The record is an 84-nucleotide RNA sequence from Caenorhabditis brenneri, which matches "mir-90 microRNA precursor family" in Rfam. The organism belongs to Caenorhabditis, within Eukaryota. Rfam links the family to the GO terms RISC complex and miRNA-mediated post-transcriptional gene silencing.
RNA sequence: AGUUUCGAGCGGCUUUCAACAACGAUAUCAACCGAUUUUCAGUAAAUUGCGAGUUGAUAUGUUGUUUGAAUGCCCCUUGAGUUG
Number, nucleotide and partner (000 for none) at each position: 001a000002g000003u000004u081005u080006c079007g078008a077009g076010c000011g074012g073013c072014u000015u070016u069017c068018a066019a065020c064021a063022a062023c061024g000025a060026u059027a058028u057029c056030a055031a054032c053033c051034g050035a000036u000037u000038u000039u000040c000041a000042g000043u000044a000045a000046a000047u000048u000049g000050c034051g033052a000053g032054u031055u030056g029057a028058u027059a026060u025061g023062u022063u021064g020065u019066u018067u000068g017069a016070a015071u000072g013073c012074c011075c000076c009077u008078u007079g006080a005081g004082u000083u000084g000